RNA sequence: UCUGCAGGGUGACAGCCCCCUCUGAAACCUCCAGGGGGAGGGGGCUCGAUGAGGGCAGA
Number, nucleotide and partner (000 for none) at each position: 001u059002c058003u057004g056005c055006a000007g000008g000009g000010u000011g000012a000013c000014a046015g045016c044017c043018c042019c041020c040021u039022c038023u037024g000025a000026a000027a000028c035029c034030u000031c000032c000033a000034g029035g028036g000037g023038g022039a021040g020041g019042g018043g017044g016045c015046u014047c000048g000049a000050u000051g000052a000053g000054g000055g005056c004057a003058g002059a001
A member of the RNA family "Selenocysteine insertion sequence 1" from Machaerirhynchus nigripectus, 59 nucleotides long.
On this family, see Walczak et al., RNA 1996: "A novel RNA structural motif in the selenocysteine insertion element of eukaryotic selenoprotein mRNAs".
NCBI's taxonomy places the organism under Eukaryota, Tetrapoda, Neognathae, Neoaves, Machaerirhynchus.
Its family is annotated with selenocysteine incorporation in the Gene Ontology.
Rfam classes the family as a cis-regulatory element.